[Rfam]
This 334-nucleotide RNA sequence from Dichelobacter nodosus belongs to the Rfam family "Bacterial RNase P class A".
RNA sequence: UGAGUUUGCCAGACAAUCGCUGACGAAAGUUGGAGGAAAGUCCGGGCUUUAUAGGGCAAAGCGCUGGGUAACGCCCAGGCAGCGUGAGCUGACGGAAAGUGCCACAGAAAAGAUACCGCCUCGAUUGAGGUAAGGGUGAAAUGGUGCGGUAAGAGCGCACCGCAUUUGCGGCAACGUAAAUGGCAGGGAAAACCCCGCUUAAAGCAAGACCAAAUAGAGAAUCAAUGCGGCGGCCCGUCGUGAUUCUGGGUAGGUCGCUAGAGGCUGGCAGUAAUGUUAGUCGCAGAGGAAUGAUUGUCCACGACAGAACCCGGCUUAUCGGUGAACUCAUCUU
Number, nucleotide and partner (000 for none) at each position: 001u330002g329003a328004g327005u326006u325007u324008g323009c322010c321011a319012g299013a298014c297015a296016a295017u294018c293019g000020c033021u032022g031023a030024c029025g000026a000027a000028a000029g024030u023031u022032g021033g020034a000035g000036g000037a000038a317039a316040g315041u000042c314043c313044g312045g311046g310047c204048u203049u202050u201051a000052u000053a000054g236055g235056g234057c233058a000059a200060a199061g198062c197063g196064c078065u077066g076067g075068g074069u000070a000071a000072c000073g000074c068075c067076c066077a065078g064079g093080c091081a090082g089083c088084g000085u000086g000087a000088g083089c082090u081091g080092a000093c079094g195095g194096a000097a000098a000099g193100u192101g000102c188103c187104a000105c000106a000107g000108a000109a000110a000111a000112g000113a000114u000115a000116c135117c134118g131119c130120c129121u128122c127123g000124a000125u000126u000127g122128a121129g120130g119131u118132a000133a000134g117135g116136g000137u000138g000139a000140a000141a000142u000143g161144g160145u159146g158147c157148g156149g000150u000151a000152a000153g000154a000155g000156c148157g147158c146159a145160c144161c143162g184163c182164a181165u180166u179167u178168g177169c176170g175171g000172c000173a000174a000175c170176g169177u168178a167179a166180a165181u164182g163183g000184c162185a000186g000187g103188g102189a000190a000191a000192a100193c099194c095195c094196c063197g062198c061199u060200u059201a050202a049203a048204g047205c000206a000207a000208g256209a255210c254211c253212a000213a000214a000215u000216a000217g000218a247219g246220a245221a244222u243223c242224a000225a000226u000227g241228c240229g239230g238231c237232g000233g057234c056235c055236c054237g231238u230239c229240g228241u227242g223243a222244u221245u220246c219247u218248g000249g000250g000251u000252a000253g211254g210255u209256c208257g000258c000259u000260a000261g000262a000263g282264g281265c280266u279267g278268g277269c276270a275271g000272u000273a000274a000275u270276g269277u268278u267279a266280g265281u264282c263283g000284c000285a000286g000287a000288g000289g000290a000291a000292u000293g018294a017295u016296u015297g014298u013299c012300c000301a000302c000303g000304a000305c000306a000307g000308a000309a000310c046311c045312c044313g043314g042315c040316u039317u038318a000319u011320c000321g010322g009323u008324g007325a006326a005327c004328u003329c002330a001331u000332c000333u000334u000
Rfam links the family to the GO terms ribonuclease P activity, tRNA processing and dimeric ribonuclease P complex. Ribonuclease P (RNase P) is a ubiquitous endoribonuclease, found in archaea, bacteria and eukarya as well as chloroplasts and mitochondria.